A member of the RNA family "Histone 3' UTR stem-loop" from Vidua macroura, 45 nucleotides long.
By type it is a cis-regulatory element.
The mRNAs of metazoan histone genes lack a poly-A tail. 3' end processing occurs at a site between a highly conserved stem-loop (modelled by this family) and a purine rich region around 20 nts downstream (the histone downstream element, or HDE).
Taxonomically the source falls in Vidua (Eukaryota, Deuterostomia, Dipnotetrapodomorpha, Sauria).
RNA sequence: CCAACGGCUCUUUUAAGAGCCAUCAACAUUUUCGCAAACAGGCUG
Number, nucleotide and partner (000 for none) at each position: 001c000002c000003a000004a000005c000006g021007g020008c019009u018010c017011u016012u000013u000014u000015a000016a011017g010018a009019g008020c007021c006022a000023u000024c000025a000026a000027c000028a000029u000030u000031u000032u000033c000034g000035c000036a000037a000038a000039c000040a000041g000042g000043c000044u000045g000